[Rfam]
RNA sequence: GGAUCGAUGAUGAGCAAAAUUAUCUGAGGACGGUGAAGGACACACUGCAGAUGUCAAUCUGAGGUCC
Numbered sequence: 001g002g003a004u005c006g007a008u009g010a011u012g013a014g015c016a017a018a019a020u021u022a023u024c025u026g027a028g029g030a031c032g033g034u035g036a037a038g039g040a041c042a043c044a045c046u047g048c049a050g051a052u053g054u055c056a057a058u059c060u061g062a063g064g065u066c067c
Stems, first nucleotide, its partner, number of pairs: 001067005
This 67-nucleotide RNA from Microcebus murinus belongs to the Rfam family "Small nucleolar RNA SNORD109A". The sequence is in the family's curated seed alignment. Humans have two copies of the SNORD109 gene, SNORD109A and SNORD109B. Its Rfam clan is "SNORD74 clan". Rfam classes the family as a C/D-box small nucleolar RNA. A reference for the family is Runte et al. (2001), "The IC-SNURF-SNRPN transcript serves as a host for multiple small nucleolar RNA species and as an antisense RNA for UBE3A", Hum Mol Genet. Gene Ontology terms of the family: RNA processing and nucleolus.